c-di-AMP riboswitch aptamer (ydaO/yuaA leader): a 133-nucleotide RNA sequence from Planosporangium mesophilum. The organism belongs to Planosporangium, within Bacteria.
[Rfam]
RNA sequence: CGGUGGUUGCCGCCGAGUCACCACAAGGGUGAGCCGGGGACCCAGGUCGUUGGGGUGAGUCCGCAGCGUGCGGUAGGGCGUGUUCCGGCCCGAACCCGUCAGCUAACCCGGCAGGCGGUGGAUGCGAAGGAAC
Numbered sequence: 001c002g003g004u005g006g007u008u009g010c011c012g013c014c015g016a017g018u019c020a021c022c023a024c025a026a027g028g029g030u031g032a033g034c035c036g037g038g039g040a041c042c043c044a045g046g047u048c049g050u051u052g053g054g055g056u057g058a059g060u061c062c063g064c065a066g067c068g069u070g071c072g073g074u075a076g077g078g079c080g081u082g083u084u085c086c087g088g089c090c091c092g093a094a095c096c097c098g099u100c101a102g103c104u105a106a107c108c109c110g111g112c113a114g115g116c117g118g119u120g121g122a123u124g125c126g127a128a129g130g131a132a133c
Base pairs, nucleotide, nucleotide: 011117012116013115014114018032019031020030033112034111035110036109037108038107043052044051053097054096055095061073062072063071064070076091077090078089079088
Pairs were carried over by alignment from the consensus structure.